[Rfam]
RNA sequence: UAUUUACUAAAGGCAAAUCCACUUUGCUCUACUGGCAGUGCACUUGUAGUGCAAAGUGGAUUUGCCUUUAGUAAAUA
Numbered sequence: 001u002a003u004u005u006a007c008u009a010a011a012g013g014c015a016a017a018u019c020c021a022c023u024u025u026g027c028u029c030u031a032c033u034g035g036c037a038g039u040g041c042a043c044u045u046g047u048a049g050u051g052c053a054a055a056g057u058g059g060a061u062u063u064g065c066c067u068u069u070a071g072u073a074a075a076u077a
Stems, first nucleotide, its partner, number of pairs: 001077003005073006012066008022056006029049002
RNA: mir-130 microRNA precursor family